[Rfam]
RNA sequence: GAGUUAGUAAUGAUUAUAAAAAUAAUUCUUCAUUCUAACUUGCUUAAUUUGAGCAUGAAAACCCUCUUAUUACAACCAUAGAAUCUGAGUUGC
Numbered sequence: 001g002a003g004u005u006a007g008u009a010a011u012g013a014u015u016a017u018a019a020a021a022a023u024a025a026u027u028c029u030u031c032a033u034u035c036u037a038a039c040u041u042g043c044u045u046a047a048u049u050u051g052a053g054c055a056u057g058a059a060a061a062c063c064c065u066c067u068u069a070u071u072a073c074a075a076c077c078a079u080a081g082a083a084u085c086u087g088a089g090u091u092g093c
Base pairs, nucleotide, nucleotide: 003093004092006091007090